[Rfam]
Annotation
This 115-nucleotide RNA sequence from Peribacillus asahii belongs to the Rfam family "SAM riboswitch aptamer (S box leader)". It scores 90 bits against the family's covariance model. A reference for the family is Grundy and Henkin (1998), "The S box regulon: a new global transcription termination control system for methionine and cysteine biosynthesis genes in gram-positive bacteria", Mol Microbiol. Lineage of the source: Bacteria > Bacillota > Caryophanales > Bacillaceae > Peribacillus.
RNA sequence: CUCUUAUCCAGAGAGGUCGAGGGAAUGGCCCGUUGACACCUCAGCAACCUUCAUUGACCUGUUAUCAAUGAAAAGGUGCUAAUUCCUCAAGUUCCUGUAACUUGGCAGAUAAGAA
Numbered sequence: 001c002u003c004u005u006a007u008c009c010a011g012a013g014a015g016g017u018c019g020a021g022g023g024a025a026u027g028g029c030c031c032g033u034u035g036a037c038a039c040c041u042c043a044g045c046a047a048c049c050u051u052c053a054u055u056g057a058c059c060u061g062u063u064a065u066c067a068a069u070g071a072a073a074a075g076g077u078g079c080u081a082a083u084u085c086c087u088c089a090a091g092u093u094c095c096u097g098u099a100a101c102u103u104g105g106c107a108g109a110u111a112a113g114a115a
Stems, first nucleotide, its partner, number of pairs: 002114007013042005021031003027086002043080004048076002050072008084107001088104006